[Rfam]
Shown here is a 162-nucleotide sequence from Golovinomyces cichoracearum, a member of the family "Small nucleolar RNA snR80". The organism belongs to Golovinomyces, within Eukaryota. The family has 6 seed sequences and 447 matches in Rfam 15.1. Rfam classes the family as an H/ACA-box small nucleolar RNA.
RNA sequence: AAUUGUCCCGCCAAACACUCUGGCCUUGACUAUGAUCCUUUUCGGGAUCAGUAAACUGUAGUCUAGGCCUAUUUUUGGAGCGGGAAGAAUGAAAGUCCAUCUACUCACCGCGAUACCUUUUCUUUGUGUAGGUAUAGCGGUCCAUUUUCAAAAGGACAAUAU
Numbered sequence: 001a002a003u004u005g006u007c008c009c010g011c012c013a014a015a016c017a018c019u020c021u022g023g024c025c026u027u028g029a030c031u032a033u034g035a036u037c038c039u040u041u042u043c044g045g046g047a048u049c050a051g052u053a054a055a056c057u058g059u060a061g062u063c064u065a066g067g068c069c070u071a072u073u074u075u076u077g078g079a080g081c082g083g084g085a086a087g088a089a090u091g092a093a094a095g096u097c098c099a100u101c102u103a104c105u106c107a108c109c110g111c112g113a114u115a116c117c118u119u120u121u122c123u124u125u126g127u128g129u130a131g132g133u134a135u136a137g138c139g140g141u142c143c144a145u146u147u148u149c150a151a152a153a154g155g156a157c158a159a160u161a162u
Stems, first nucleotide, its partner, number of pairs: 007083001009082002022069005028063004033050006095157004108140004113135006